About this RNA
The record is a 224-nucleotide RNA from Streptomyces lucensis, which matches "Streptomyces sRNA 4677" in Rfam. Rfam's curators write: Located in the intergenic region between anti-sigma factor SCO4677 gene and a putative regulatory protein gene SCO4676. scr4677 expression requires the SCO4677 activity and scr4677 sRNA itself seem to affect the levels of the SCO4676-associated transcripts. The source organism's lineage runs through Bacteria, Actinomycetota, Actinomycetes, Streptomycetaceae and Streptomyces lucensis. It scores 80 bits against the family's covariance model.
RNA sequence: GGGUCCGGCCGGCCGCUGAUCUCCUUGAAGAACCGGGGGAAAGAACUUCCCGCCCGCCCACCCUCCCCGCCAGGAGGCCCAGUUCACCCGUCCGAGUGACCAGCUUGCGGGGGCGGGAUACGGACGGUUACGUUCACGGCAACAACCACAGACAAGUUCGGCCCCCGGCCGGGACGGCAAUCCCGAUCGAGGGCCUGACCGAUCAGGAAGCGAACGCCUUCCCG
Dot-bracket structure: ..........(((.(....................................................))))............((((.(....).))))........((.((.....................)).)).....................(((((.((...((((......))))...)).)))))..........(((((.......)))))..